[Rfam]
RNA sequence: UCUAGAACUUGAUAUAUGAGUUAAACACUGAACAAUGUUUGGGCUGCAGGACAGAUUCAAACUUCUCUUUUGAUGCUAAGAUUUGGACUUCUAAACUACAUAAUUGAGUCUUGGACUCUCAUGAAUGUUUUAGACCUAUGUCUUAGCUUUCUAGC
Numbered sequence: 001u002c003u004a005g006a007a008c009u010u011g012a013u014a015u016a017u018g019a020g021u022u023a024a025a026c027a028c029u030g031a032a033c034a035a036u037g038u039u040u041g042g043g044c045u046g047c048a049g050g051a052c053a054g055a056u057u058c059a060a061a062c063u064u065c066u067c068u069u070u071u072g073a074u075g076c077u078a079a080g081a082u083u084u085g086g087a088c089u090u091c092u093a094a095a096c097u098a099c100a101u102a103a104u105u106g107a108g109u110c111u112u113g114g115a116c117u118c119u120c121a122u123g124a125a126u127g128u129u130u131u132a133g134a135c136c137u138a139u140g141u142c143u144u145a146g147c148u149u150u151c152u153a154g155c
Stems, first nucleotide, its partner, number of pairs: 002154006008146002011144002014141005020135001021133005027128002035122003042118002045115001048112005054105004072088001074086001